[Rfam]
RNA sequence: GGUCCGAUGCCACGUCGGUGGUAGCUAUAUGAUAGCAGUGAUCUUCGAUGCUAUAAUUGGAACAAAAUCAAUUCUUUCGCAUAUUGAUAGGAAUCUGCAGAUCUUAUUUUCCAUGAUCAUGCUGAGCCGAUUUGUGUGAUUACAUUU
Numbered sequence: 001g002g003u004c005c006g007a008u009g010c011c012a013c014g015u016c017g018g019u020g021g022u023a024g025c026u027a028u029a030u031g032a033u034a035g036c037a038g039u040g041a042u043c044u045u046c047g048a049u050g051c052u053a054u055a056a057u058u059g060g061a062a063c064a065a066a067a068u069c070a071a072u073u074c075u076u077u078c079g080c081a082u083a084u085u086g087a088u089a090g091g092a093a094u095c096u097g098c099a100g101a102u103c104u105u106a107u108u109u110u111c112c113a114u115g116a117u118c119a120u121g122c123u124g125a126g127c128c129g130a131u132u133u134g135u136g137u138g139a140u141u142a143c144a145u146u147u
Base pairs, nucleotide, nucleotide: 003061004060005059006058007057008056009054013050014049015048016047017046018045020043021042022041024036025035026034077139078138079137080136081135090128091127095124097122100118101117102116103115
RNA: Small nucleolar RNA snoR2/U65